The family of this 195-nucleotide RNA sequence from Sodalis-like endosymbiont of Proechinophthirus fluctus is "Yersinia sRNA 276". NCBI's taxonomy places the organism under Bacteria, Pseudomonadota, Gammaproteobacteria, Bruguierivoracaceae, Sodalis.

[Rfam]
RNA sequence: AACCGACAUUAGCGAUUCAUUGUAUGAGCCCUGACCGACUGCCAGAUAAGCGUUCAUGCCUAACUCUUUCAUCUGCUGUUUGCUGAUGACCCGGGUUGUGGUCGAUUUGCUGUAGCCGUCGGCCAGAUGGCGUGCCUGUGAGGCCAGAUAGGCCGGAUUGCAAAUAUUGGGCGGCAUGUUGCCCAAAUCUUUGGC
Number, nucleotide and partner (000 for none) at each position: 001a000002a000003c000004c000005g189006a188007c000008a000009u000010u000011a000012g032013c000014g030015a000016u028017u027018c026019a025020u024021u000022g000023u000024a020025u019026g018027a017028g016029c000030c014031c000032u012033g043034a000035c041036c000037g000038a000039c000040u000041g035042c000043c033044a000045g000046a000047u000048a000049a000050g059051c058052g000053u000054u000055c000056a000057u000058g051059c050060c000061u000062a077063a000064c075065u000066c000067u000068u000069u000070c000071a000072u000073c000074u000075g064076c000077u062078g135079u134080u000081u132082g131083c130084u129085g128086a000087u126088g000089a000090c000091c000092c122093g000094g120095g119096u118097u000098g000099u112100g111101g110102u109103c000104g000105a000106u000107u000108u000109g102110c101111u100112g099113u000114a000115g000116c000117c000118g096119u095120c094121g000122g092123c000124c000125a000126g087127a000128u085129g084130g083131c082132g081133u000134g079135c078136c000137u162138g161139u000140g159141a158142g000143g000144c155145c000146a000147g000148a000149u000150a000151g000152g000153c000154c000155g144156g000157a000158u141159u140160g000161c138162a137163a000164a000165u000166a000167u186168u185169g184170g183171g182172c181173g000174g000175c000176a000177u000178g000179u000180u000181g172182c171183c170184c169185a168186a167187a000188u006189c005190u000191u000192u000193g000194g000195c000